Group II catalytic intron D1-D4-2: a 115-nucleotide RNA sequence from Notodromas monacha. A reference for the family is Bonen and Vogel (2001), "The ins and outs of group II introns", Trends Genet. The organism belongs to Notodromas, within Eukaryota. About the family: Group II introns are found in rRNA, tRNA and mRNA of organelles in fungi, plants and protists, and also in mRNA in bacteria. A search with the family's covariance model found it, with a score of 72 bits.
[Rfam]
RNA sequence: GGAGGUAGGCCCUCUGCAAUCUGUUUUCAGGAGCUGGUAGCAAACAACUGUAAGCUGCUAUAGUCAAAAUCUAUAUGGUAGUGAGGAUUACAGAAAAUAUACACAAGAAUAAGUA
Numbered sequence: 001g002g003a004g005g006u007a008g009g010c011c012c013u014c015u016g017c018a019a020u021c022u023g024u025u026u027u028c029a030g031g032a033g034c035u036g037g038u039a040g041c042a043a044a045c046a047a048c049u050g051u052a053a054g055c056u057g058c059u060a061u062a063g064u065c066a067a068a069a070u071c072u073a074u075a076u077g078g079u080a081g082u083g084a085g086g087a088u089u090a091c092a093g094a095a096a097a098u099a100u101a102c103a104c105a106a107g108a109a110u111a112a113g114u115a
Stems, first nucleotide, its partner, number of pairs: 001015005016041002019038003023034004048093006054082002057079003061073003100115003